[Rfam]
RNA sequence: CAACGAUAACGGCAAACCAAUUGAAAAGUUGGGACGCAAAGCUAAGGACCUUAAUCUGCAAAGAAAGGCAGCCAGCUACCGAA
Numbered sequence: 001c002a003a004c005g006a007u008a009a010c011g012g013c014a015a016a017c018c019a020a021u022u023g024a025a026a027a028g029u030u031g032g033g034a035c036g037c038a039a040a041g042c043u044a045a046g047g048a049c050c051u052u053a054a055u056c057u058g059c060a061a062a063g064a065a066a067g068g069c070a071g072c073c074a075g076c077u078a079c080c081g082a083a
Stems, first nucleotide, its partner, number of pairs: 012037002017032006040077004046073002049068002055064003
Dot-bracket structure: ...........((...((((((....))))))...))..((((..((.((....(((....)))..))...))))))......
RNA: c-di-GMP-I riboswitch aptamer